This 51-nucleotide sequence belongs to the Rfam family "Streptococcus sRNA SpF59 (ldcC RNA)". The family's consensus secondary structure was predicted with mfold.
[Rfam]
RNA sequence: CGACCCUUCCCUUCGGGGGAUACGGCCACGGACAGCCGGGUCGACUGCCGA
Numbered sequence: 001c002g003a004c005c006c007u008u009c010c011c012u013u014c015g016g017g018g019g020a021u022a023c024g025g026c027c028a029c030g031g032a033c034a035g036c037c038g039g040g041u042c043g044a045c046u047g048c049c050g051a
Stems, first nucleotide, its partner, number of pairs: 001043005006019005